[Rfam]
Shown here is a 73-nucleotide sequence from Nannospalax galili, a member of the family "Small nucleolar RNA SNORD101".
The base pairs follow the family's consensus structure, which was predicted with PFOLD.
For this family Rfam cites "Identification of 13 novel human modification guide RNAs" (Vitali et al., Nucleic Acids Res, 2003).
The match comes from Rfam's covariance-model search (58 bits).
Gene Ontology terms of the family: RNA processing and nucleolus.
Rfam 15.1 lists 658 matches to the family in 617 species.
RNA sequence: GUUUUGGAUAAUGACUUAAAUUGUAAGAUACCCCUUUACUCCUUUCAUGGGUGGAACACGAUGGUUUACAAAC
Numbered sequence: 001g002u003u004u005u006g007g008a009u010a011a012u013g014a015c016u017u018a019a020a021u022u023g024u025a026a027g028a029u030a031c032c033c034c035u036u037u038a039c040u041c042c043u044u045u046c047a048u049g050g051g052u053g054g055a056a057c058a059c060g061a062u063g064g065u066u067u068a069c070a071a072a073c
Stems, first nucleotide, its partner, number of pairs: 001073002004071003
Its Rfam clan is "SNORD101 clan". NCBI's taxonomy places the organism under Eukaryota, Teleostomi, Dipnotetrapodomorpha, Mammalia, Nannospalax.